[Rfam]
RNA: Acido-Lenti-1 RNA
Organism: Cryomorpha ignava
RNA sequence: CCUUGGGUUAAAACCCAAGGCUAAAAUAACUGUCGUCCUUACAGGACU
Numbered sequence: 001c002c003u004u005g006g007g008u009u010a011a012a013a014c015c016c017a018a019g020g021c022u023a024a025a026a027u028a029a030c031u032g033u034c035g036u037c038c039u040u041a042c043a044g045g046a047c048u
Stems, first nucleotide, its partner, number of pairs: 001020008035047005